[Rfam]
RNA sequence: UCAAAACUAAUCACUUGUUAUUUUCUAAUUGGUUCUUAGAAAACUUUAAUGCACUAAGAACGAAUUAGAAAAUGACAAGUGGCUAGUUUUGG
Numbered sequence: 001u002c003a004a005a006a007c008u009a010a011u012c013a014c015u016u017g018u019u020a021u022u023u024u025c026u027a028a029u030u031g032g033u034u035c036u037u038a039g040a041a042a043a044c045u046u047u048a049a050u051g052c053a054c055u056a057a058g059a060a061c062g063a064a065u066u067a068g069a070a071a072a073u074g075a076c077a078a079g080u081g082g083c084u085a086g087u088u089u090u091g092g
Stems, first nucleotide, its partner, number of pairs: 002091008011082020032061008
RNA: MIR6288 microRNA precursor family